[Rfam]
RNA: Small nucleolar RNA SNORA48
Organism: Rhinolophus ferrumequinum
RNA sequence: UGUCCCUGGUCUGGGUAGAGUGGUACCUUCUUUGGUGGUGCUUAUCUCAUAUCAGCCAGGGACAAAGCAACUCCUUGUUCAUCCCAGCUUGGCUGUUGGUCUGUGCCCAUGCCUGGUUCAUGCCCUGGACACAUGA
Numbered sequence: 001u002g003u004c005c006c007u008g009g010u011c012u013g014g015g016u017a018g019a020g021u022g023g024u025a026c027c028u029u030c031u032u033u034g035g036u037g038g039u040g041c042u043u044a045u046c047u048c049a050u051a052u053c054a055g056c057c058a059g060g061g062a063c064a065a066a067g068c069a070a071c072u073c074c075u076u077g078u079u080c081a082u083c084c085c086a087g088c089u090u091g092g093c094u095g096u097u098g099g100u101c102u103g104u105g106c107c108c109a110u111g112c113c114u115g116g117u118u119c120a121u122g123c124c125c126u127g128g129a130c131a132c133a134u135g136a
Stems, first nucleotide, its partner, number of pairs: 001064008011055004018048003022042006076131006091124003097120003101116003105112002